[Rfam]
RNA sequence: CCGCUGGAAGAAGAAGAUAUGGUCUCGUAUAUUCUCGCAGGACUGGACUUCGAUUACAAUCCAAUUGUUUCAUUUGUUGCUGCAUGGGUGGAACCGAUAUCUGUCGGAGAACUGCACUCGUAGUUGACAGCGUACGAGG
Numbered sequence: 001c002c003g004c005u006g007g008a009a010g011a012a013g014a015a016g017a018u019a020u021g022g023u024c025u026c027g028u029a030u031a032u033u034c035u036c037g038c039a040g041g042a043c044u045g046g047a048c049u050u051c052g053a054u055u056a057c058a059a060u061c062c063a064a065u066u067g068u069u070u071c072a073u074u075u076g077u078u079g080c081u082g083c084a085u086g087g088g089u090g091g092a093a094c095c096g097a098u099a100u101c102u103g104u105c106g107g108a109g110a111a112c113u114g115c116a117c118u119c120g121u122a123g124u125u126g127a128c129a130g131c132g133u134a135c136g137a138g139g
Stems, first nucleotide, its partner, number of pairs: 004138002007135001094107005
RNA: Small nucleolar RNA Z247
Organism: Oryza brachyantha